RNA sequence: GCCCACGACGCGGGGUGCCGACCACAACGGCUGAGAGACACCCGUGGAACCUGCUCUAGCUCGCACUAGCGAAGGGACGUCACC
Dot-bracket structure: ......((((((((.(((((.......))))......)..)))).....(((...((((......))))...)))..))))...
Source information
The record is an 84-nucleotide RNA sequence from Dermatophilus congolensis, which matches "TPP riboswitch aptamer (THI element)" in Rfam. It scores 55 bits against the family's covariance model. Taxonomically the source falls in Dermatophilus (Bacteria, Bacillati, Actinomycetota, Micrococcales). The base pairs follow the family's consensus structure, which is taken from published work.